Rfam assigns this 93-nucleotide sequence from Xenopus laevis to the family "mir-1388 microRNA precursor family".
Rfam links the family to the GO terms RISC complex and miRNA-mediated post-transcriptional gene silencing.
The organism belongs to Xenopus, within Eukaryota.
[Rfam]
RNA sequence: UGAGCACUUCUGCCCCAAGGACUGUCUGACCUGAGAAUGGGGAGAAAUGAACAUCAAUCUCAGGUUUGUCAGCCCAUGUGGCAGUGGUUGGCA
Numbered sequence: 001u002g003a004g005c006a007c008u009u010c011u012g013c014c015c016c017a018a019g020g021a022c023u024g025u026c027u028g029a030c031c032u033g034a035g036a037a038u039g040g041g042g043a044g045a046a047a048u049g050a051a052c053a054u055c056a057a058u059c060u061c062a063g064g065u066u067u068g069u070c071a072g073c074c075c076a077u078g079u080g081g082c083a084g085u086g087g088u089u090g091g092c093a
Stems, first nucleotide, its partner, number of pairs: 005090002008086001010084005016078001019075002022072003026068001028066009038056002